[Rfam]
RNA sequence: GCAGGCUCACUCUGUGCCGAACUGCAGUCUUCAGUUCAGGUGCUUUUUCUGUCUGCGAAAGUAAUAGUUCACGGGUGUGAGAAACGCUUCUUUCAUGUAGAAGUCUGUUACAAUUGCUCUUGGGACAUUGCU
Numbered sequence: 001g002c003a004g005g006c007u008c009a010c011u012c013u014g015u016g017c018c019g020a021a022c023u024g025c026a027g028u029c030u031u032c033a034g035u036u037c038a039g040g041u042g043c044u045u046u047u048u049c050u051g052u053c054u055g056c057g058a059a060a061g062u063a064a065u066a067g068u069u070c071a072c073g074g075g076u077g078u079g080a081g082a083a084a085c086g087c088u089u090c091u092u093u094c095a096u097g098u099a100g101a102a103g104u105c106u107g108u109u110a111c112a113a114u115u116g117c118u119c120u121u122g123g124g125a126c127a128u129u130g131c132u
Stems, first nucleotide, its partner, number of pairs: 001056006014043005019037002022034003069123003073119003077114002082109001